Ribosomal protein L10 leader: a 120-nucleotide sequence from Limosilactobacillus mucosae. Pairs were carried over by alignment from the consensus structure, which was predicted with CMfinder. About the family: This family is a putative r-protein leader autoregulatory structure found in B. subtilis and other low-GC Gram-positive bacteria. It scores 67 bits against the family's covariance model.
[Rfam]
RNA sequence: UGAUUAAAUAUGACUCUGCCUAAGACUCAGGUGGCACCAGCCUUAAUUAAUGCCUGCCGAGGAAGAAAUGAAAUGUUCCUUCUCUAUGUCUGCCGGUCAUAGGGAUUUUUUUAAAUCCGA
Numbered sequence: 001u002g003a004u005u006a007a008a009u010a011u012g013a014c015u016c017u018g019c020c021u022a023a024g025a026c027u028c029a030g031g032u033g034g035c036a037c038c039a040g041c042c043u044u045a046a047u048u049a050a051u052g053c054c055u056g057c058c059g060a061g062g063a064a065g066a067a068a069u070g071a072a073a074u075g076u077u078c079c080u081u082c083u084c085u086a087u088g089u090c091u092g093c094c095g096g097u098c099a100u101a102g103g104g105a106u107u108u109u110u111u112u113a114a115a116u117c118c119g120a
Stems, first nucleotide, its partner, number of pairs: 028056005033042003081105008090096001